This 76-nucleotide sequence from Pipistrellus kuhlii belongs to the Rfam family "mir-9229 microRNA precursor family". The family's consensus secondary structure was predicted with RNAalifold. A search with the family's covariance model found it, with a score of 82 bits.

[Rfam]
RNA sequence: GAGACACCCUUAUGGGGCAAGACUUGAUUUAAUGGAGCUUUGGUGCUCACUGAGUCUGCACCCUGAGUGUGUCUCU
Numbered sequence: 001g002a003g004a005c006a007c008c009c010u011u012a013u014g015g016g017g018c019a020a021g022a023c024u025u026g027a028u029u030u031a032a033u034g035g036a037g038c039u040u041u042g043g044u045g046c047u048c049a050c051u052g053a054g055u056c057u058g059c060a061c062c063c064u065g066a067g068u069g070u071g072u073c074u075c076u
Stems, first nucleotide, its partner, number of pairs: 001075007009067004014062002017059003021056003029053003033049003037044002
Rfam 15.1 lists 27,225 matches to the family in 9 species.